RNA sequence: AAAAGGGGGGAGCAAUACCAAACUUCUUGCUCAAACAAGAUAUUGGAUAUUGCUCCUUCAA
Numbered sequence: 001a002a003a004a005g006g007g008g009g010g011a012g013c014a015a016u017a018c019c020a021a022a023c024u025u026c027u028u029g030c031u032c033a034a035a036c037a038a039g040a041u042a043u044u045g046g047a048u049a050u051u052g053c054u055c056c057u058u059c060a061a
Stems, first nucleotide, its partner, number of pairs: 006059012021044002025040005
A member of the RNA family "Plastid-psbA-4 3UTR RNA" from Dioscorea zingiberensis, 61 nucleotides long. Plastid psbA-4 is a non-coding RNA (ncRNA) present in plastids. It was identified in inverted repeat sequences in the 3 prime untranslate region (3UTR) of photosystem II quinone-binding protein (psbA). Rfam classes the family as a cis-regulatory element. It scores 59 bits against the family's covariance model. For this family Rfam cites "Retrograde signaling in plants: A critical review focusing on the GUN pathway and beyond" (Richter et al., Plant Commun, 2023). Clan: Plastid-psbA 3UTR RNA clan. The base pairs follow the family's consensus structure, which was predicted with LocARNA. The organism belongs to Dioscorea, within Eukaryota.